Shown here is a 76-nucleotide sequence from Nyssa sinensis, a member of the family "Small nucleolar RNA snoR109".
Rfam classes the family as an H/ACA-box small nucleolar RNA.
Taxonomically the source falls in Nyssa (Eukaryota, Streptophytina, Pentapetalae, Nyssaceae).
The base pairs follow the family's consensus structure, which was predicted with WAR.
On this family, see Marker et al., Curr Biol 2002: "Experimental RNomics: identification of 140 candidates for small non-messenger RNAs in the plant Arabidopsis thaliana".

RNA sequence: AGGAAAGCUUUACUGGAUGAGAAGUUUCCUGGCCGGUUGUUGUUUGAGAUAUAUGCUUACCGAACUUCUCACAAAA
Numbered sequence: 001a002g003g004a005a006a007g008c009u010u011u012a013c014u015g016g017a018u019g020a021g022a023a024g025u026u027u028c029c030u031g032g033c034c035g036g037u038u039g040u041u042g043u044u045u046g047a048g049a050u051a052u053a054u055g056c057u058u059a060c061c062g063a064a065c066u067u068c069u070c071a072c073a074a075a076a
Stems, first nucleotide, its partner, number of pairs: 019070008031057003036052002040047002